[Rfam]
RNA: Plant signal recognition particle RNA
Organism: Zea mays
RNA sequence: GUGAGCAAGUAGUGAUUGCUUGUAACCCGAGCGGGGCAAUAAGCUAGUGUGGAUGUCAAUUGAGGAGCAUGUGCCUGGGUCUAGUGCUACAAACUGUGGACCACCCAUUCCAAGUUCUGUAGUGGGUUUUGGGUGCCUUGGGUAAAGCCUUUGCAUCCUAACACCUAAAGUGGCGGACAUUGCGUGAGGCUGGCUUCACAGAGCAGCGAGUACCGCCCGCCACCAGCGGUGGAAGGAUAAUGAGCCACUAUGCUAUAGGCCAAUUGAGGCACAUGUGCCCUCCCUGGUAGACCACUAUCUUU
Numbered sequence: 001g002u003g004a005g006c007a008a009g010u011a012g013u014g015a016u017u018g019c020u021u022g023u024a025a026c027c028c029g030a031g032c033g034g035g036g037c038a039a040u041a042a043g044c045u046a047g048u049g050u051g052g053a054u055g056u057c058a059a060u061u062g063a064g065g066a067g068c069a070u071g072u073g074c075c076u077g078g079g080u081c082u083a084g085u086g087c088u089a090c091a092a093a094c095u096g097u098g099g100a101c102c103a104c105c106c107a108u109u110c111c112a113a114g115u116u117c118u119g120u121a122g123u124g125g126g127u128u129u130u131g132g133g134u135g136c137c138u139u140g141g142g143u144a145a146a147g148c149c150u151u152u153g154c155a156u157c158c159u160a161a162c163a164c165c166u167a168a169a170g171u172g173g174c175g176g177a178c179a180u181u182g183c184g185u186g187a188g189g190c191u192g193g194c195u196u197c198a199c200a201g202a203g204c205a206g207c208g209a210g211u212a213c214c215g216c217c218c219g220c221c222a223c224c225a226g227c228g229g230u231g232g233a234a235g236g237a238u239a240a241u242g243a244g245c246c247a248c249u250a251u252g253c254u255a256u257a258g259g260c261c262a263a264u265u266g267a268g269g270c271a272c273a274u275g276u277g278c279c280c281u282c283c284c285u286g287g288u289a290g291a292c293c294a295c296u297a298u299c300u301u302u
Base pairs, nucleotide, nucleotide: 001037002036003021004020005019006018007017008016026035027034028033041301042300043299045297046296047295048294049293051292054289055288057286058285062280064278067276068275069274070273071272072271073270074269075268076267077261078260080258083256086253087252091249096248097247098246099245102242103241105236106235108234109233110232111231112230114227115226116225119223120222122220123219124164126162127161128160131158132157133156134155135154136153140149141148165170172217173216174215175214176213181210183208184207185206190201191200192199
Dot-bracket structure: ((((((((.......))))))....(((....)))))...(((.(((((.(..((.((...(.(..((((((((((((.(..(..((...(....((((..((.((.(((((.(((..((.(((.(((..((((((...((......))...)))))).))).)(....).(((((....(.(((....(((......)))....))).)..))))).)).)).)))..)))))))....))..)))))..))..).).)).....)))))))))).).)....)).))..)))))).))).